Group I catalytic intron: a 321-nucleotide RNA sequence from Microbotryum silenes-dioicae. The match comes from Rfam's covariance-model search (99 bits). NCBI's taxonomy places the organism under Eukaryota, Fungi, Dikarya, Basidiomycota, Microbotryum. Rfam's curators write: Group I catalytic introns are large self-splicing ribozymes. They catalyse their own excision from mRNA, tRNA and rRNA precursors in a wide range of organisms. Pairs were carried over by alignment from the consensus structure, which is taken from published work.
RNA sequence: CGAACCAUCUAAAUGUUGCUUGGUGGUUAAUAGGGACUUCAAAGUAGAGCCCUAGUGGGAGUGGUAACUUGCGACACUUUCAAAUUGCGGGGACGCCCUUAGAGCUCUAAUUACGGCGGCUCAUCGAAAGAUAGAGUGCAGCAGCAGGUUAAUGGCCUCGCGGAUCGUAAAAACAUUAGAGAUUGGGUAAUCCGCAGCCAAGUCCUAAGUAGCGCCUUGGAGUCGCUAUAUGGAUGCAGUUCAUCGACUAAAUGGAAGUGGGUGUCCUUUCUUAACCGGAAGGGUGCUUGAGAUAUAGUCAGCCCCUCGUGAGAGCGAGCU
Numbered sequence: 001c002g003a004a005c006c007a008u009c010u011a012a013a014u015g016u017u018g019c020u021u022g023g024u025g026g027u028u029a030a031u032a033g034g035g036a037c038u039u040c041a042a043a044g045u046a047g048a049g050c051c052c053u054a055g056u057g058g059g060a061g062u063g064g065u066a067a068c069u070u071g072c073g074a075c076a077c078u079u080u081c082a083a084a085u086u087g088c089g090g091g092g093a094c095g096c097c098c099u100u101a102g103a104g105c106u107c108u109a110a111u112u113a114c115g116g117c118g119g120c121u122c123a124u125c126g127a128a129a130g131a132u133a134g135a136g137u138g139c140a141g142c143a144g145c146a147g148g149u150u151a152a153u154g155g156c157c158u159c160g161c162g163g164a165u166c167g168u169a170a171a172a173a174c175a176u177u178a179g180a181g182a183u184u185g186g187g188u189a190a191u192c193c194g195c196a197g198c199c200a201a202g203u204c205c206u207a208a209g210u211a212g213c214g215c216c217u218u219g220g221a222g223u224c225g226c227u228a229u230a231u232g233g234a235u236g237c238a239g240u241u242c243a244u245c246g247a248c249u250a251a252a253u254g255g256a257a258g259u260g261g262g263u264g265u266c267c268u269u270u271c272u273u274a275a276c277c278g279g280a281a282g283g284g285u286g287c288u289u290g291a292g293a294u295a296u297a298g299u300c301a302g303c304c305c306c307u308c309g310u311g312a313g314a315g316c317g318a319g320c321u
Stems, first nucleotide, its partner, number of pairs: 005026005011020001030039001075260005081254002086196006096187003197240002202235004210228005244301001246300005262287009306319005

Source information
On this family, see Cech, Annu Rev Biochem 1990: "Self-splicing of group I introns".